[Rfam]
RNA: Plastid-atpF group II-D1 intron
RNA sequence: GAAAUUUUUUUCGACAUAGAGCACUCAUAUUGAUAAAAUGAUUUGAACCCCUU
Dot-bracket structure: ..........((((.((.........)).))))....................